The record is an 83-nucleotide RNA from Capitella teleta, which matches "mir-981 microRNA precursor family" in Rfam. Pairs were carried over by alignment from the consensus structure, which was predicted with RNAalifold. A search with the family's covariance model found it, with a score of 64 bits.
RNA sequence: GGUCUUUCAAUUCGGGUUUCGCGGUAUUCGAACACGUACCAAUAGCAGUUGUUCGUUGUCGUCGAAACCUGCUUUGAAAGAUA
Numbered sequence: 001g002g003u004c005u006u007u008c009a010a011u012u013c014g015g016g017u018u019u020c021g022c023g024g025u026a027u028u029c030g031a032a033c034a035c036g037u038a039c040c041a042a043u044a045g046c047a048g049u050u051g052u053u054c055g056u057u058g059u060c061g062u063c064g065a066a067a068c069c070u071g072c073u074u075u076g077a078a079a080g081a082u083a
Stems, first nucleotide, its partner, number of pairs: 002082005013071009030054005